Shown here is a 40-nucleotide RNA from Closterovirus flavibetae, a member of the family "3'-terminal pseudoknot in BYV".
By type it is a cis-regulatory element.
The family's consensus secondary structure is taken from published work.
[Rfam]
RNA sequence: CUCCUAGCGAAGUCCCGCUAGGAAGAAAAAAUAAGGGCCG
Numbered sequence: 001c002u003c004c005u006a007g008c009g010a011a012g013u014c015c016c017g018c019u020a021g022g023a024a025g026a027a028a029a030a031a032u033a034a035g036g037g038c039c040g
Stems, first nucleotide, its partner, number of pairs: 002023007012038004
Background: Lineage of the source: Viruses > Kitrinoviricota > Martellivirales > Closterovirus > Closterovirus flavibetae.